[Rfam]
RNA sequence: CCCUUCUCAUGAGCUCCUCUUAAUCUUACCCAUGGUUUUGCAUGGAUUCGCACGAGAAGCAGAGCCAUUGCGCAGUUAGAACAGGCCUGCCCUACCUUCAUGUGGGUGUUGCUUAUGUCUGCUGUGCAACAAGU
Number, nucleotide and partner (000 for none) at each position: 001c000002c000003c059004u058005u057006c056007u055008c054009a000010u000011g000012a000013g051014c050015u046016c045017c044018u000019c000020u000021u000022a037023a036024u035025c034026u000027u000028a000029c000030c000031c000032a000033u000034g025035g024036u023037u022038u000039u000040g000041c000042a000043u000044g017045g016046a015047u000048u000049c000050g014051c013052a000053c000054g008055a007056g006057a005058a004059g003060c000061a000062g000063a000064g000065c000066c000067a000068u000069u000070g127071c126072g125073c124074a123075g122076u000077u000078a000079g000080a000081a000082c000083a000084g000085g000086c000087c000088u000089g000090c000091c106092c105093u104094a103095c000096c000097u000098u000099c000100a000101u000102g000103u094104g093105g092106g091107u000108g000109u000110u000111g000112c000113u000114u000115a000116u000117g000118u000119c000120u000121g000122c075123u074124g073125u072126g071127c070128a000129a000130c000131a000132a000133g000134u000
Rfam assigns this 134-nucleotide RNA from Amphiprion percula to the family "Small nucleolar RNA SNORA75". The family's consensus secondary structure was predicted with PFOLD. The literature on the family includes a 2002 paper in Biochimie by Bachellerie et al., "The expanding snoRNA world". It is annotated as an H/ACA-box small nucleolar RNA. Rfam 15.1 lists 414 matches to the family in 310 species. The match comes from Rfam's covariance-model search (80 bits).